[Rfam]
RNA sequence: UCUGCAACAAUCUUGCAUCUGGAGCUUACUUACAGUGUAUUUAUUACACAAUUAGCUACGGGAAGGUCUGAGACAGGCAAUUUCACUCUAGCCGGGUGCUUGCAUUUUGCAAGACAAGGGAACCAGAAAUAGUGCCGAUAAAUUUUCAAGCCUGUGAUUAUUUUUUAAAUAUAGGCGCAGAAAUUUUGUUGGUUGGAAACUCUUGUCGCCAGCUGUUUGAGUUUAAUUUGCAAGCUGGUUUUCAACCAGAACUCAAUUCAGACUAAUCUUUUGCAGA
Numbered sequence: 001u002c003u004g005c006a007a008c009a010a011u012c013u014u015g016c017a018u019c020u021g022g023a024g025c026u027u028a029c030u031u032a033c034a035g036u037g038u039a040u041u042u043a044u045u046a047c048a049c050a051a052u053u054a055g056c057u058a059c060g061g062g063a064a065g066g067u068c069u070g071a072g073a074c075a076g077g078c079a080a081u082u083u084c085a086c087u088c089u090a091g092c093c094g095g096g097u098g099c100u101u102g103c104a105u106u107u108u109g110c111a112a113g114a115c116a117a118g119g120g121a122a123c124c125a126g127a128a129a130u131a132g133u134g135c136c137g138a139u140a141a142a143u144u145u146u147c148a149a150g151c152c153u154g155u156g157a158u159u160a161u162u163u164u165u166u167a168a169a170u171a172u173a174g175g176c177g178c179a180g181a182a183a184u185u186u187u188g189u190u191g192g193u194u195g196g197a198a199a200c201u202c203u204u205g206u207c208g209c210c211a212g213c214u215g216u217u218u219g220a221g222u223u224u225a226a227u228u229u230g231c232a233a234g235c236u237g238g239u240u241u242u243c244a245a246c247c248a249g250a251a252c253u254c255a256a257u258u259c260a261g262a263c264u265a266a267u268c269u270u271u272u273g274c275a276g277a
Stems, first nucleotide, its partner, number of pairs: 001277004007271001009269001012234006021059001023057003035049005068261005076210003084098005099113005114206007135192008235249005
Shown here is a 277-nucleotide RNA sequence from Brassicogethes aeneus, a member of the family "Nuclear RNase P". A search with the family's covariance model found it, with a score of 133 bits. The family's RNA type in Rfam is ribozyme. About the family: Ribonuclease P (RNase P) is a ubiquitous endoribonuclease, found in archaea, bacteria and eukarya as well as chloroplasts and mitochondria. Lineage of the source: Eukaryota > Neoptera > Endopterygota > Neuropteroidea > Brassicogethes.